[Rfam]
RNA sequence: CCUGCCUCAGCUCGUGUUGCAGACGUGGCUGCAGUGCCACGUUUGUGUCAUCUGGUGGCAGAGAGGAUAAGGCGAGGUCUUCCCCUGGUGCUCUGACCCACAUGGGCUCCCAGGAUUGGUCAACAACCUGACAUU
Numbered sequence: 001c002c003u004g005c006c007u008c009a010g011c012u013c014g015u016g017u018u019g020c021a022g023a024c025g026u027g028g029c030u031g032c033a034g035u036g037c038c039a040c041g042u043u044u045g046u047g048u049c050a051u052c053u054g055g056u057g058g059c060a061g062a063g064a065g066g067a068u069a070a071g072g073c074g075a076g077g078u079c080u081u082c083c084c085c086u087g088g089u090g091c092u093c094u095g096a097c098c099c100a101c102a103u104g105g106g107c108u109c110c111c112a113g114g115a116u117u118g119g120u121c122a123a124c125a126a127c128c129u130g131a132c133a134u135u
Stems, first nucleotide, its partner, number of pairs: 002061005007055004014048002019046004024041006070129003081119002085113004090107004
RNA: Small nucleolar RNA SNORA17